[Rfam]
RNA sequence: CUUACUGCUUGUGAGCCUAAGCUCAAGUAUCUGUUCUUAUCAGUUUAAUAUCUGACGUCCUCUCUAUCUGAGGAUAAUAUGUUGAAUUGGUUUUGUAACAGAGGGCUGGAAUAGGAGCUUGCUCCAUCCACUUCACAUAUCAACCAGAUGUUGCAGUACCUGUGGUAAUGGUGUACCCUUU
Numbered sequence: 001c002u003u004a005c006u007g008c009u010u011g012u013g014a015g016c017c018u019a020a021g022c023u024c025a026a027g028u029a030u031c032u033g034u035u036c037u038u039a040u041c042a043g044u045u046u047a048a049u050a051u052c053u054g055a056c057g058u059c060c061u062c063u064c065u066a067u068c069u070g071a072g073g074a075u076a077a078u079a080u081g082u083u084g085a086a087u088u089g090g091u092u093u094u095g096u097a098a099c100a101g102a103g104g105g106c107u108g109g110a111a112u113a114g115g116a117g118c119u120u121g122c123u124c125c126a127u128c129c130a131c132u133u134c135a136c137a138u139a140u141c142a143a144c145c146a147g148a149u150g151u152u153g154c155a156g157u158a159c160c161u162g163u164g165g166u167a168a169u170g171g172u173g174u175a176c177c178c179u180u181u
Stems, first nucleotide, its partner, number of pairs: 001021002007016003038057001040055004061073004103134003107130004114125004137174006145165001147163001
Rfam assigns this 181-nucleotide RNA sequence from Castor canadensis to the family "U2 spliceosomal RNA". U2 is a small nuclear RNA (snRNA) component of the spliceosome (involved in pre-mRNA splicing). Complementary binding between U2 snRNA (in an area lying towards the 5' end but 3' to hairpin I) and the branchpoint sequence (BPS) of the intron results the bulging out of an unpaired adenosine, on the BPS, which initiates a nucleophilic attack at the intronic 5' splice site, thus starting the first of two transesterification reactions that mediate splicing. Rfam links the family to the GO terms U2 snRNP, mRNA branch site recognition and pre-mRNA branch point binding. The source organism's lineage runs through Eukaryota, Deuterostomia, Chordata, Castoridae and Castor. Its Rfam clan is "U2 clan". It is annotated as a spliceosomal small nuclear RNA. For this family Rfam cites "The uRNA database" (Zwieb, Nucleic Acids Res, 1997).